[Rfam]
RNA sequence: AAGGUUAAUGAAAGUGAUCAGAUCAUGUACCUUCUGAAUGGCCUAGGAGCUGAGUACAACCCUUUUAUUGUUUCUAUCACUACUAGACAUGAAAAGGUCACCAUGAUGGAGGCAUAUUCUAUGCUGUUGAGAUUUGAAA
Numbered sequence: 001a002a003g004g005u006u007a008a009u010g011a012a013a014g015u016g017a018u019c020a021g022a023u024c025a026u027g028u029a030c031c032u033u034c035u036g037a038a039u040g041g042c043c044u045a046g047g048a049g050c051u052g053a054g055u056a057c058a059a060c061c062c063u064u065u066u067a068u069u070g071u072u073u074c075u076a077u078c079a080c081u082a083c084u085a086g087a088c089a090u091g092a093a094a095a096g097g098u099c100a101c102c103a104u105g106a107u108g109g110a111g112g113c114a115u116a117u118u119c120u121a122u123g124c125u126g127u128u129g130a131g132a133u134u135u136g137a138a139a
Stems, first nucleotide, its partner, number of pairs: 005137004088108003092104001
Dot-bracket structure: ....((((...............................................................................(((.(...........).))).........................))))..
Small nucleolar RNA Z247: a 139-nucleotide RNA from Phtheirospermum japonicum.
On this family, see Chen et al., Nucleic Acids Res 2003: "The high diversity of snoRNAs in plants: identification and comparative study of 120 snoRNA genes from Oryza sativa".
By type it is a C/D-box small nucleolar RNA.
The family's consensus secondary structure was predicted with PFOLD.
Gene Ontology terms of the family: nucleolus and RNA processing.